[Rfam]
RNA sequence: CACUGACAGAGCCAACGAGUCCCUAUUCCGAAAGGUUUGGGAAACCUUGUUAAACUCUGUCGUGCUGGGGAUAGAGCAUUGCAAUUAUUGCUCUUCAACGAGGA
Dot-bracket structure: ....(((((((.....(((..((....((....))....))....)))......)))))))......(....((((((..........))))))....).....